[Rfam]
RNA: Antisense RNA which regulates isiA expression
RNA sequence: GGUAGCCGUAGAUCACCAGUGGGUCGAGAGUCGGUGCAGUCACAGUGCGAACGGCCUGAAUUGUGGGGUCAUACAGUCCACCCCAAAACAUUGCCUUUGCCACCAGCAGCAGGGCACCAGCUCCCAAGAAAAGCAGGUGAUGCCCCAGAAUCAGUCCUAACUGCUUCGGAUCACCCCA
Numbered sequence: 001g002g003u004a005g006c007c008g009u010a011g012a013u014c015a016c017c018a019g020u021g022g023g024u025c026g027a028g029a030g031u032c033g034g035u036g037c038a039g040u041c042a043c044a045g046u047g048c049g050a051a052c053g054g055c056c057u058g059a060a061u062u063g064u065g066g067g068g069u070c071a072u073a074c075a076g077u078c079c080a081c082c083c084c085a086a087a088a089c090a091u092u093g094c095c096u097u098u099g100c101c102a103c104c105a106g107c108a109g110c111a112g113g114g115c116a117c118c119a120g121c122u123c124c125c126a127a128g129a130a131a132a133g134c135a136g137g138u139g140a141u142g143c144c145c146c147a148g149a150a151u152c153a154g155u156c157c158u159a160a161c162u163g164c165u166u167c168g169g170a171u172c173a174c175c176c177c178a
Stems, first nucleotide, its partner, number of pairs: 136175006144169002147166002